[Rfam]
Shown here is a 320-nucleotide RNA from Pedionomus torquatus, a member of the family "7SK RNA". Lineage of the source: Eukaryota > Metazoa > Tetrapoda > Pedionomidae > Pedionomus. Rfam's curators write: 7SK was discovered as an abundant small nuclear RNA in the mid-70s but a possible function has only recently been suggested. Two independent studies have found that 7SK RNA binds the CDK9/cyclin T complex (known as elongation factor P-TEFb). P-TEFb activates transcription by phosphorylating the C-terminal domain of RNA polymerase II. This process is negatively regulated by the 7SK RNP. The secondary structure of 7SK RNA shown here was proposed by Wasserman and Steitz on the basis of chemical modification and enzymatic cleavage experiments.

RNA sequence: GAAUAUGAGGAUGAUCUGGCUGUGAUAUCUGUCACCCUAUUUAUUGCCAGAGUUGAUUUGGCUGUACUGGCUGGCUAGAAGGGUGUCCCCUUCCUUCCUCAGCAAUCUGUGUACGUCCCUCCCAAAGCCACAUGGUCAGUCAAAGAAGACAGCCUUACCCAAGAGGAACACUGGUCAAGGGUAUACAGUAGCUGUGCUCCCCUGCUGAAACCUCCAAGCAUGUUCAAAGUCCAUUUGUAGGAAAAUGUAGGGUAGUCAAGCUUCCAAGACUGCAGACAGAUCCAAGGUAUGUCCCCCACCAUGUGGGACAGUCUGCCAUU
Numbered sequence: 001g002a003a004u005a006u007g008a009g010g011a012u013g014a015u016c017u018g019g020c021u022g023u024g025a026u027a028u029c030u031g032u033c034a035c036c037c038u039a040u041u042u043a044u045u046g047c048c049a050g051a052g053u054u055g056a057u058u059u060g061g062c063u064g065u066a067c068u069g070g071c072u073g074g075c076u077a078g079a080a081g082g083g084u085g086u087c088c089c090c091u092u093c094c095u096u097c098c099u100c101a102g103c104a105a106u107c108u109g110u111g112u113a114c115g116u117c118c119c120u121c122c123c124a125a126a127g128c129c130a131c132a133u134g135g136u137c138a139g140u141c142a143a144a145g146a147a148g149a150c151a152g153c154c155u156u157a158c159c160c161a162a163g164a165g166g167a168a169c170a171c172u173g174g175u176c177a178a179g180g181g182u183a184u185a186c187a188g189u190a191g192c193u194g195u196g197c198u199c200c201c202c203u204g205c206u207g208a209a210a211c212c213u214c215c216a217a218g219c220a221u222g223u224u225c226a227a228a229g230u231c232c233a234u235u236u237g238u239a240g241g242a243a244a245a246u247g248u249a250g251g252g253u254a255g256u257c258a259a260g261c262u263u264c265c266a267a268g269a270c271u272g273c274a275g276a277c278a279g280a281u282c283c284a285a286g287g288u289a290u291g292u293c294c295c296c297c298a299c300c301a302u303g304u305g306g307g308a309c310a311g312u313c314u315g316c317c318a319u320u
Base pairs, nucleotide, nucleotide: 001108003106006101007100008099009098010097011096013093014092018090019089024087025086026085027084028083029082030081032079033078035074036073037070038069039068045064046062047061048060118166119165120164121163122139125136128134140162149156191261192260193259197255198254200252201251202250203249204248205247213242214241215240218238219237220236222234284320285319288315289314291313293311295307296306297305298304